[Rfam]
RNA: Fumarate/nitrate reductase regulator sRNA
RNA sequence: GCAGGUGAAUGCAACGUCAAGCGAUGGGCGUUGCGUUCUAUAUUGUCUUGCUUCCUUUUUUGAAUUACUGCAUAGCACAAUUGAUUCGUACGACGCCGGCUUAGAUUAGUCGGCUUUU
Numbered sequence: 001g002c003a004g005g006u007g008a009a010u011g012c013a014a015c016g017u018c019a020a021g022c023g024a025u026g027g028g029c030g031u032u033g034c035g036u037u038c039u040a041u042a043u044u045g046u047c048u049u050g051c052u053u054c055c056u057u058u059u060u061u062g063a064a065u066u067a068c069u070g071c072a073u074a075g076c077a078c079a080a081u082u083g084a085u086u087c088g089u090a091c092g093a094c095g096c097c098g099g100c101u102u103a104g105a106u107u108a109g110u111c112g113g114c115u116u117u118u
Base pairs, nucleotide, nucleotide: 001046002045003044004043007038008037009036010035011034012033013032014031015030016029017028018027062087063086064085065084066083067082069077070076071075095114096113097112098111099110100109101108